[Rfam]
RNA sequence: CUCUGGAGAGCUUCGUGCUGCCGUGCAUAGCGGGAAAACGAACACCAAAGGGGAAACUUGACGGACGGGAAGUCCACAGGGUAACUCUCAGGUAAAAAGGACAGGG
Numbered sequence: 001c002u003c004u005g006g007a008g009a010g011c012u013u014c015g016u017g018c019u020g021c022c023g024u025g026c027a028u029a030g031c032g033g034g035a036a037a038a039c040g041a042a043c044a045c046c047a048a049a050g051g052g053g054a055a056a057c058u059u060g061a062c063g064g065a066c067g068g069g070a071a072g073u074c075c076a077c078a079g080g081g082u083a084a085c086u087c088u089c090a091g092g093u094a095a096a097a098a099g100g101a102c103a104g105g106g
Stems, first nucleotide, its partner, number of pairs: 001106005012042004044093003048088001051087003057080004
This 106-nucleotide RNA from Paenibacillus sp. N3.4 belongs to the Rfam family "Glycine riboswitch aptamer".
Lineage of the source: Bacteria > Bacillati > Bacillota > Bacilli > Paenibacillus.